[Rfam]
A member of the RNA family "MIR2617 microRNA precursor family" from Medicago truncatula, 89 nucleotides long.
RNA sequence: AUGUAGUAUGACAUGCUCAUUGGAUUUUACUCUAAUGUUGAAUUAAUUAUUAUUUAAUUACUUUUAGAUAACGGAGUGUUACAACUACU
Numbered sequence: 001a002u003g004u005a006g007u008a009u010g011a012c013a014u015g016c017u018c019a020u021u022g023g024a025u026u027u028u029a030c031u032c033u034a035a036u037g038u039u040g041a042a043u044u045a046a047u048u049a050u051u052a053u054u055u056a057a058u059u060a061c062u063u064u065u066a067g068a069u070a071a072c073g074g075a076g077u078g079u080u081a082c083a084a085c086u087a088c089u
Stems, first nucleotide, its partner, number of pairs: 003088005009081006017074002020071002
Dot-bracket structure: ..(((((.((((((..((.((................................................)).)).))))))..))))).
Description: A search with the family's covariance model found it, with a score of 49 bits.